[Rfam]
RNA: mir-8364 microRNA precursor family
Organism: Pristionchus pacificus
RNA sequence: UCUUCAUUUCACGCACUUUGUCACCGAUCAGAGAGGCGAGAGAGUACGUGAAAUGAAGAGA
Numbered sequence: 001u002c003u004u005c006a007u008u009u010c011a012c013g014c015a016c017u018u019u020g021u022c023a024c025c026g027a028u029c030a031g032a033g034a035g036g037c038g039a040g041a042g043a044g045u046a047c048g049u050g051a052a053a054u055g056a057a058g059a060g061a
Base pairs, nucleotide, nucleotide: 001059002058003057004056005055006054007053010050012048013047015045016044017043019041021039022038